[Rfam]
RNA sequence: GAUGAAGAUAAAGGCAGCGGUGCAGAUGAGUACUUUCGGGAGCCGGCAGGCUGGGAACGAAAGGAAAGGCAAUCAUCGCCGAACGGGCGCGCCGGCGGGCGUGAAUCGUGGGAUGUCAGGGAAGACCUGCCAGACUCCUUCAGGUAUGAAGAGGCGUUAUCACAUAA
Numbered sequence: 001g002a003u004g005a006a007g008a009u010a011a012a013g014g015c016a017g018c019g020g021u022g023c024a025g026a027u028g029a030g031u032a033c034u035u036u037c038g039g040g041a042g043c044c045g046g047c048a049g050g051c052u053g054g055g056a057a058c059g060a061a062a063g064g065a066a067a068g069g070c071a072a073u074c075a076u077c078g079c080c081g082a083a084c085g086g087g088c089g090c091g092c093c094g095g096c097g098g099g100c101g102u103g104a105a106u107c108g109u110g111g112g113a114u115g116u117c118a119g120g121g122a123a124g125a126c127c128u129g130c131c132a133g134a135c136u137c138c139u140u141c142a143g144g145u146a147u148g149a150a151g152a153g154g155c156g157u158u159a160u161c162a163c164a165u166a167a
Base pairs, nucleotide, nucleotide: 007161008160009159010158011157017079018078019077020076021075022074025070033063034062035061036060037059038058083109084108085107086106088103089102090101091100092099093098110136111135114132115131117129118128119127120126138151139150140149141148142147
A member of the RNA family "Lysine riboswitch aptamer" from Faecalibaculum rodentium, 167 nucleotides long. Riboswitches are metabolite binding domains within certain messenger RNAs that serve as precision sensors for their corresponding targets. Lineage of the source: Bacteria > Bacillota > Erysipelotrichia > Erysipelotrichaceae > Faecalibaculum. A search with the family's covariance model found it, with a score of 54 bits.